Rfam assigns this 104-nucleotide RNA from Pseudoselenomonas ruminis to the family "Purine riboswitch aptamer". It scores 68 bits against the family's covariance model.
RNA sequence: UCUUUUAACUGUCAUAUUACUUGUAUAAGCCCGCUGAUACGGUGCGGGCGUUUCUACCAGGCAGCCGUAAACUGUCACAGUCUACAAGGGAAAUUGCGCAUGAU
Numbered sequence: 001u002c003u004u005u006u007a008a009c010u011g012u013c014a015u016a017u018u019a020c021u022u023g024u025a026u027a028a029g030c031c032c033g034c035u036g037a038u039a040c041g042g043u044g045c046g047g048g049c050g051u052u053u054c055u056a057c058c059a060g061g062c063a064g065c066c067g068u069a070a071a072c073u074g075u076c077a078c079a080g081u082c083u084a085c086a087a088g089g090g091a092a093a094u095u096g097c098g099c100a101u102g103a104u
Stems, first nucleotide, its partner, number of pairs: 018090001020088006029049006058080001060076005